[Rfam]
RNA sequence: UAAUUUUCUGUGCGAGAGUGUCUAUAUGGCCGCCGAAGAGGCAAGAAUAAGGGCUGUCCGCUUUUAUUUGAAACUUUCAGGCAAAAGGAUCACGGAGAAUCU
Numbered sequence: 001u002a003a004u005u006u007u008c009u010g011u012g013c014g015a016g017a018g019u020g021u022c023u024a025u026a027u028g029g030c031c032g033c034c035g036a037a038g039a040g041g042c043a044a045g046a047a048u049a050a051g052g053g054c055u056g057u058c059c060g061c062u063u064u065u066a067u068u069u070g071a072a073a074c075u076u077u078c079a080g081g082c083a084a085a086a087g088g089a090u091c092a093c094g095g096a097g098a099a100u101c102u
Stems, first nucleotide, its partner, number of pairs: 006097007020030003032082003035078002039076003045069010
This 102-nucleotide RNA sequence from Megasphaera cerevisiae belongs to the Rfam family "Glycine riboswitch aptamer". A search with the family's covariance model found it, with a score of 50 bits. This family represents the bacterial glycine riboswitch.